[Rfam]
RNA sequence: UACCAGAGUAGAAGCGGUCAGGGGCCCCGCCCCGGGACAUUGCUCUUUGA
Numbered sequence: 001u002a003c004c005a006g007a008g009u010a011g012a013a014g015c016g017g018u019c020a021g022g023g024g025c026c027c028c029g030c031c032c033c034g035g036g037a038c039a040u041u042g043c044u045c046u047u048u049g050a
Stems, first nucleotide, its partner, number of pairs: 005046006015035001018037002021033005
A member of the RNA family "Xanthine riboswitch aptamer (NMT1 RNA)" from Halopseudomonas pelagia, 50 nucleotides long.
Gene Ontology term of the family: purine nucleobase binding.
The family's consensus secondary structure is taken from published work.